[Rfam]
RNA: c-di-AMP riboswitch aptamer (ydaO/yuaA leader)
Organism: Longispora fulva
RNA sequence: CGGGAGUCACCGCCGAGUCACCCUCCGGGUGAGCCGGGGACCCAAGGUACGUGGGGUGAAUCCGUCCGACUCCUCAGUGGAGGACCGGCCGGUAGGGCGCUCUUCCCGCCCGAAUCCGUCAGCUGACCUGGUAGGCGGGUACGGGAGAAGGG
Numbered sequence: 001c002g003g004g005a006g007u008c009a010c011c012g013c014c015g016a017g018u019c020a021c022c023c024u025c026c027g028g029g030u031g032a033g034c035c036g037g038g039g040a041c042c043c044a045a046g047g048u049a050c051g052u053g054g055g056g057u058g059a060a061u062c063c064g065u066c067c068g069a070c071u072c073c074u075c076a077g078u079g080g081a082g083g084a085c086c087g088g089c090c091g092g093u094a095g096g097g098c099g100c101u102c103u104u105c106c107c108g109c110c111c112g113a114a115u116c117c118g119u120c121a122g123c124u125g126a127c128c129u130g131g132u133a134g135g136c137g138g139g140u141a142c143g144g145g146a147g148a149a150g151g152g
Base pairs, nucleotide, nucleotide: 011137012136013135014134018032019031020030033132034131035130036129037128038127043053044052054117055116056115062092063091064090095111096110097109098108